[Rfam]
RNA: Bacterial small subunit ribosomal RNA, nucleotides 888 to 1486
RNA sequence: UGACGGGGGCCCGCACAAGCGGUGGAGCACGUGGUUUAAUUCGAUGCAAACCGAAGAACCUUACCUGGGUUUGACAUGCGCGUGGUACGGAGAUGAAAGUUGAAGGACCCUGUAGAGAUACAGGGAGCGCGCACAGGUGCUGCAUGGCUGUCGUCAGCUCGUGUCGUGAGAUGUUGGGUUAAGUCCCGCAACGAGCGCAACCCCUGCAUCCAGUUGCCAGCGAGUGAAGUCGGGGACUCUGGAUGGACUGCCGGCGACAAGCCGGAGGAAGGUGGGGAUGACGUCAAGUCAUCAUGGCCCUUAUGUCCAGGGCGACACACGUGCUACAAUGGCCGGCACAACGGGAAGCGAAGGGGCGACCCGGAGCGGAUCCAAUCAAAGCCGGUCCCAGUUCGGAUUGGAGUCUGCAACCCGACUCCAUGAAGCUGGAAUCGCUAGUAAUCGCGGAUCAGCCAAGCCGCGGUGAAUACGUUCCCGGGCCUUGUACACACCGCCCGUCACACCACCCGAGUUGGGGGCACCCGAAGCCGGAGGCUUAACCCGUAAGGGAAGGAUCCGUCGAAGGUGCGUCUGGUAAGGGGGGUGAAGUCGUAACAAGG
Numbered sequence: 001u002g003a004c005g006g007g008g009g010c011c012c013g014c015a016c017a018a019g020c021g022g023u024g025g026a027g028c029a030c031g032u033g034g035u036u037u038a039a040u041u042c043g044a045u046g047c048a049a050a051c052c053g054a055a056g057a058a059c060c061u062u063a064c065c066u067g068g069g070u071u072u073g074a075c076a077u078g079c080g081c082g083u084g085g086u087a088c089g090g091a092g093a094u095g096a097a098a099g100u101u102g103a104a105g106g107a108c109c110c111u112g113u114a115g116a117g118a119u120a121c122a123g124g125g126a127g128c129g130c131g132c133a134c135a136g137g138u139g140c141u142g143c144a145u146g147g148c149u150g151u152c153g154u155c156a157g158c159u160c161g162u163g164u165c166g167u168g169a170g171a172u173g174u175u176g177g178g179u180u181a182a183g184u185c186c187c188g189c190a191a192c193g194a195g196c197g198c199a200a201c202c203c204c205u206g207c208a209u210c211c212a213g214u215u216g217c218c219a220g221c222g223a224g225u226g227a228a229g230u231c232g233g234g235g236a237c238u239c240u241g242g243a244u245g246g247a248c249u250g251c252c253g254g255c256g257a258c259a260a261g262c263c264g265g266a267g268g269a270a271g272g273u274g275g276g277g278a279u280g281a282c283g284u285c286a287a288g289u290c291a292u293c294a295u296g297g298c299c300c301u302u303a304u305g306u307c308c309a310g311g312g313c314g315a316c317a318c319a320c321g322u323g324c325u326a327c328a329a330u331g332g333c334c335g336g337c338a339c340a341a342c343g344g345g346a347a348g349c350g351a352a353g354g355g356g357c358g359a360c361c362c363g364g365a366g367c368g369g370a371u372c373c374a375a376u377c378a379a380a381g382c383c384g385g386u387c388c389c390a391g392u393u394c395g396g397a398u399u400g401g402a403g404u405c406u407g408c409a410a411c412c413c414g415a416c417u418c419c420a421u422g423a424a425g426c427u428g429g430a431a432u433c434g435c436u437a438g439u440a441a442u443c444g445c446g447g448a449u450c451a452g453c454c455a456a457g458c459c460g461c462g463g464u465g466a467a468u469a470c471g472u473u474c475c476c477g478g479g480c481c482u483u484g485u486a487c488a489c490a491c492c493g494c495c496c497g498u499c500a501c502a503c504c505a506c507c508c509g510a511g512u513u514g515g516g517g518g519c520a521c522c523c524g525a526a527g528c529c530g531g532a533g534g535c536u537u538a539a540c541c542c543g544u545a546a547g548g549g550a551a552g553g554a555u556c557c558g559u560c561g562a563a564g565g566u567g568c569g570u571c572u573g574g575u576a577a578g579g580g581g582g583g584u585g586a587a588g589u590c591g592u593a594a595c596a597a598g599g
Stems, first nucleotide, its partner, number of pairs: 001488002003485003007482007015472002019435005024327001026325008034316002040055004064311007077133007088105001092101003108125007136300002139298004145294002147289003150285001152283002157196006163172003175188004202277004207245007217234002221232003248268002251265005331387007344373002348367002353362003394425001399420007441464007491598001493595001496591002501585004506580003511575006518568005527560001529558004535553003540549002